[Rfam]
RNA sequence: UUUCAGGCUCGGGAUUUUGGGGGCGAGAUGAGUUUGCGUCCAAAUCCAACUGGCCCGCAAAGUCCCGCUUCUGGUG
Numbered sequence: 001u002u003u004c005a006g007g008c009u010c011g012g013g014a015u016u017u018u019g020g021g022g023g024c025g026a027g028a029u030g031a032g033u034u035u036g037c038g039u040c041c042a043a044a045u046c047c048a049a050c051u052g053g054c055c056c057g058c059a060a061a062g063u064c065c066c067g068c069u070u071c072u073g074g075u076g
Stems, first nucleotide, its partner, number of pairs: 003074005010067004015062005021056004026051002029048002
Overview:
Shown here is a 76-nucleotide RNA from Erpetoichthys calabaricus, a member of the family "mir-193 microRNA precursor family". The match comes from Rfam's covariance-model search (70 bits). Pairs were carried over by alignment from the consensus structure, which was predicted with RNAalifold. The family has 54 seed sequences and 1,158 matches in Rfam 15.1. Its family is annotated with miRNA-mediated post-transcriptional gene silencing and RISC complex in the Gene Ontology.